[Rfam]
RNA sequence: AGUUGUCUUCGGGGCAGGGUGAAAAUCCCGACCGGCGGUGCAAGUCCGCGAGCCACGCGAGUGGUUGAAUGCUGUAAAGCUACCGAUAGUUAUAGUCUAGAUGGGAGAAGGCAGAC
Numbered sequence: 001a002g003u004u005g006u007c008u009u010c011g012g013g014g015c016a017g018g019g020u021g022a023a024a025a026u027c028c029c030g031a032c033c034g035g036c037g038g039u040g041c042a043a044g045u046c047c048g049c050g051a052g053c054c055a056c057g058c059g060a061g062u063g064g065u066u067g068a069a070u071g072c073u074g075u076a077a078a079g080c081u082a083c084c085g086a087u088a089g090u091u092a093u094a095g096u097c098u099a100g101a102u103g104g105g106a107g108a109a110g111g112c113a114g115a116c
Stems, first nucleotide, its partner, number of pairs: 003114008017029003031096002033085002035049004044083002052065003069081001071080001087099003

A member of the RNA family "FMN riboswitch aptamer (RFN element)" from Lactobacillus delbrueckii, 116 nucleotides long.
Rfam links the family to the GO term FMN binding.
The source organism's lineage runs through Bacteria, Bacillota, Lactobacillales, Lactobacillus delbrueckii and Lactobacillus delbrueckii subsp. bulgaricus.